RNA sequence: GAUACCUAUAGGCAAACUUGCUGAAAAGUAAGGACGCAAAGCUCAGGGUCUAAGGUUUCUUACAUGAAGAGACUAUGACAGCCUAGCCGCCGAU
Numbered sequence: 001g002a003u004a005c006c007u008a009u010a011g012g013c014a015a016a017c018u019u020g021c022u023g024a025a026a027a028g029u030a031a032g033g034a035c036g037c038a039a040a041g042c043u044c045a046g047g048g049u050c051u052a053a054g055g056u057u058u059c060u061u062a063c064a065u066g067a068a069g070a071g072a073c074u075a076u077g078a079c080a081g082c083c084u085a086g087c088c089g090c091c092g093a094u
Stems, first nucleotide, its partner, number of pairs: 012037002017032006041087003045084003048079003055073007
Dot-bracket structure: ...........((...((((((....))))))...))...(((.((((((....(((((((.....)))))))...)))..)))))).......

Shown here is a 94-nucleotide RNA sequence from Paenibacillus sp. FSL H7-0331, a member of the family "c-di-GMP-I riboswitch aptamer". Taxonomically the source falls in Paenibacillus (Bacteria, Bacilli, Caryophanales, Paenibacillaceae). Rfam links the family to the GO term cyclic-di-GMP binding. A search with the family's covariance model found it, with a score of 75 bits.